[Rfam]
eL15-Euryarchaeota ribosomal protein leader: a 48-nucleotide RNA sequence.
For this family Rfam cites "Discovery of 20 novel ribosomal leader candidates in bacteria and archaea" (Eckert and Weinberg, BMC Microbiol, 2020).
RNA sequence: GCGGAUGAAAGGUCCGCUGGGAUGUAGCCGUGCAGGCUGAACCGUAAA
Dot-bracket structure: (((((.......)))))(((.....((((.....))))...)))....